[Rfam]
The record is a 199-nucleotide RNA sequence from Medicago truncatula, which matches "MIR2670 microRNA precursor family" in Rfam.
RNA sequence: UUGGGGUAAAAUAGUGAGUAGCUGACUUGGGGAAGUGAUCGACUCUUGGGAUAAGUUUAAAUCUGCUUUUUUUUUAACCCCAUAAACUUUUUACCGUGGGUAAAAAAAAUUCUUGCGGUAAAAAAAAACCAGAUUUAAAUUUAGCCCGAGGGUUGAUGAUGUAUUUUCCCCAAGAAAGUUGCUUACUAUUUUACCCCAA
Numbered sequence: 001u002u003g004g005g006g007u008a009a010a011a012u013a014g015u016g017a018g019u020a021g022c023u024g025a026c027u028u029g030g031g032g033a034a035g036u037g038a039u040c041g042a043c044u045c046u047u048g049g050g051a052u053a054a055g056u057u058u059a060a061a062u063c064u065g066c067u068u069u070u071u072u073u074u075u076a077a078c079c080c081c082a083u084a085a086a087c088u089u090u091u092u093a094c095c096g097u098g099g100g101u102a103a104a105a106a107a108a109a110u111u112c113u114u115g116c117g118g119u120a121a122a123a124a125a126a127a128a129c130c131a132g133a134u135u136u137a138a139a140u141u142u143a144g145c146c147c148g149a150g151g152g153u154u155g156a157u158g159a160u161g162u163a164u165u166u167u168c169c170c171c172a173a174g175a176a177a178g179u180u181g182c183u184u185a186c187u188a189u190u191u192u193a194c195c196c197c198a199a
Base pairs, nucleotide, nucleotide: 003197004196005195006194007193008192009191010190011189012188013187014186015185016184017183018182019181020180021179022178023177026174027173028172029171030170031169032168033167034166035165038160039159040158041157042153043152044151046149047148048147049146050145052143053142054141055140057138058137059136060135061134062133063132064131065130067128068127069126070125071124072123073122077119078118079117081115088106089105090104091103092102093101094100095099
The source organism's lineage runs through Eukaryota, Streptophyta, Gunneridae, Fabales and Medicago. The family has 7 seed sequences and 188 matches in Rfam 15.1.